[Rfam]
RNA sequence: CUGAAGGCCGCGUUCGGGUCAAUUGCGGACUGCAACACCCGAUCUCCCUCCACCUGCCUCCCGGACGGGAGGCGCAGGAGGGGGAGCGCGUCACCGUCAG
Numbered sequence: 001c002u003g004a005a006g007g008c009c010g011c012g013u014u015c016g017g018g019u020c021a022a023u024u025g026c027g028g029a030c031u032g033c034a035a036c037a038c039c040c041g042a043u044c045u046c047c048c049u050c051c052a053c054c055u056g057c058c059u060c061c062c063g064g065a066c067g068g069g070a071g072g073c074g075c076a077g078g079a080g081g082g083g084g085a086g087c088g089c090g091u092c093a094c095c096g097u098c099a100g
Stems, first nucleotide, its partner, number of pairs: 001100004009090005015041004023035005043085005051080001053078004
L4-Archaeoglobi ribosomal protein leades: a 100-nucleotide RNA sequence from Candidatus Halobonum tyrrellensis. On this family, see Eckert and Weinberg, BMC Microbiol 2020: "Discovery of 20 novel ribosomal leader candidates in bacteria and archaea". The family's RNA type in Rfam is cis-regulatory leader. The base pairs follow the family's consensus structure, which is taken from published work.